[Rfam]
RNA sequence: UCCAAAAGUUGUUGGGUCUGGCUGGCAGCCGGACCCAACGCUAUUGGGUCCGGCUGCCAGCAGGACUCAAUGCUAAUGAGU
Numbered sequence: 001u002c003c004a005a006a007a008g009u010u011g012u013u014g015g016g017u018c019u020g021g022c023u024g025g026c027a028g029c030c031g032g033a034c035c036c037a038a039c040g041c042u043a044u045u046g047g048g049u050c051c052g053g054c055u056g057c058c059a060g061c062a063g064g065a066c067u068c069a070a071u072g073c074u075a076a077u078g079a080g081u
Stems, first nucleotide, its partner, number of pairs: 001079002004077001007074003011071009021061018